RNA sequence: AUUAAUAACGAGGGUCGGGCACCCUGCAAAAUUAAU
Numbered sequence: 001a002u003u004a005a006u007a008a009c010g011a012g013g014g015u016c017g018g019g020c021a022c023c024c025u026g027c028a029a030a031a032u033u034a035a036u
Stems, first nucleotide, its partner, number of pairs: 001036006011025005
Rfam assigns this 36-nucleotide RNA to the family "S16-Flavobacteria ribosomal protein leader". It is annotated as a cis-regulatory leader. The base pairs follow the family's consensus structure, which is taken from published work. The sequence is in the family's curated seed alignment. On this family, see Eckert and Weinberg, BMC Microbiol 2020: "Discovery of 20 novel ribosomal leader candidates in bacteria and archaea".